A member of the RNA family "tRNA" from Brevibacterium rongguiense, 89 nucleotides long. It is annotated as a transfer RNA. The organism belongs to Brevibacterium, within Bacteria.

RNA sequence: GGAGUCGUGGCUGAGCGGCCGAAAGCACCACCCUGCUAAGGUGGAGUCCCUUGAACUGGGGACCGUGGGUUCAAAUCCCACCGGCUCCG
Dot-bracket structure: (((((((..(((...........))).(((((.......)))))....................(((((.......)))))))))))).
Numbered sequence: 001g002g003a004g005u006c007g008u009g010g011c012u013g014a015g016c017g018g019c020c021g022a023a024a025g026c027a028c029c030a031c032c033c034u035g036c037u038a039a040g041g042u043g044g045a046g047u048c049c050c051u052u053g054a055a056c057u058g059g060g061g062a063c064c065g066u067g068g069g070u071u072c073a074a075a076u077c078c079c080a081c082c083g084g085c086u087c088c089g
Stems, first nucleotide, its partner, number of pairs: 001088007010026003028044005065081005
A search with the family's covariance model found it, with a score of 60 bits.